The record is a 273-nucleotide RNA sequence from Nannospalax galili, which matches "Mason-Pfizer monkey virus packaging signal" in Rfam. By type it is a cis-regulatory element.
RNA sequence: UGGCGCCCAACAUAGGGCCUGGAUACUGGGGGACAACAUGAGGGUCGACGACGAAGAAUGAAGGGGUGCACCCAUUCAAAUAGUUUGGAGACGUCGCAGUAGCCUGCUGUGACCGAGCCGACAGUUAAGUUGGUUGUUCAAUCAUGGGGCAAGAAUUGAGUCAGCAUCAGAAAUAUGUGAUACAGUUAAAAGAAGCUUUACAGGCAAGAGGAGUAAAGGUUACAAUUGAGGAUUUAUUUCAUUUCUUUGAUUUUGUGAAAGACAUCUGCCCAU
Numbered sequence: 001u002g003g004c005g006c007c008c009a010a011c012a013u014a015g016g017g018c019c020u021g022g023a024u025a026c027u028g029g030g031g032g033a034c035a036a037c038a039u040g041a042g043g044g045u046c047g048a049c050g051a052c053g054a055a056g057a058a059u060g061a062a063g064g065g066g067u068g069c070a071c072c073c074a075u076u077c078a079a080a081u082a083g084u085u086u087g088g089a090g091a092c093g094u095c096g097c098a099g100u101a102g103c104c105u106g107c108u109g110u111g112a113c114c115g116a117g118c119c120g121a122c123a124g125u126u127a128a129g130u131u132g133g134u135u136g137u138u139c140a141a142u143c144a145u146g147g148g149g150c151a152a153g154a155a156u157u158g159a160g161u162c163a164g165c166a167u168c169a170g171a172a173a174u175a176u177g178u179g180a181u182a183c184a185g186u187u188a189a190a191a192g193a194a195g196c197u198u199u200a201c202a203g204g205c206a207a208g209a210g211g212a213g214u215a216a217a218g219g220u221u222a223c224a225a226u227u228g229a230g231g232a233u234u235u236a237u238u239u240c241a242u243u244u245c246u247u248u249g250a251u252u253u254u255g256u257g258a259a260a261g262a263c264a265u266c267u268g269c270c271c272a273u
Base pairs, nucleotide, nucleotide: 006031007030008029013025014024037050039048082126083125084124086121092115093114095111096110097109098108099107133150134149137148138147139146140145157200158199159198160196161195208248209247210246211245212244213243217235218234219233220232221231258273261270263268